[Rfam]
RNA sequence: UGCUUUUAUCAGGUAUCAGCAAUUGUCUUUCAUUAGGGGGAAGAAUGAAGAAGAAUACUAAUAGCAGACUUAUAAACUGAGACAGUUUUGAGUGCUUGAACUUUUUCAUUUUACUUCAACCUCUAAGGAGGGCAGUCACUGGCGUGCCUACUUUACUUGUUUUAGGUGAUAGAACAGCAAACAGGCAAU
Numbered sequence: 001u002g003c004u005u006u007u008a009u010c011a012g013g014u015a016u017c018a019g020c021a022a023u024u025g026u027c028u029u030u031c032a033u034u035a036g037g038g039g040g041a042a043g044a045a046u047g048a049a050g051a052a053g054a055a056u057a058c059u060a061a062u063a064g065c066a067g068a069c070u071u072a073u074a075a076a077c078u079g080a081g082a083c084a085g086u087u088u089u090g091a092g093u094g095c096u097u098g099a100a101c102u103u104u105u106u107c108a109u110u111u112u113a114c115u116u117c118a119a120c121c122u123c124u125a126a127g128g129a130g131g132g133c134a135g136u137c138a139c140u141g142g143c144g145u146g147c148c149u150a151c152u153u154u155a156c157u158u159g160u161u162u163u164a165g166g167u168g169a170u171a172g173a174a175c176a177g178c179a180a181a182c183a184g185g186c187a188a189u
Base pairs, nucleotide, nucleotide: 002020003019004018007015008014009013029130030129031128033126034125035124036123037122038121039120040117041116042115043114044110045109046108047107049106050105051104066089067088068087070085071084094101139184140183141182145179146178147177151172152171154168155167156166157165158164
RNA: Connexin-43 internal ribosome entry site (IRES)
Organism: Myotis myotis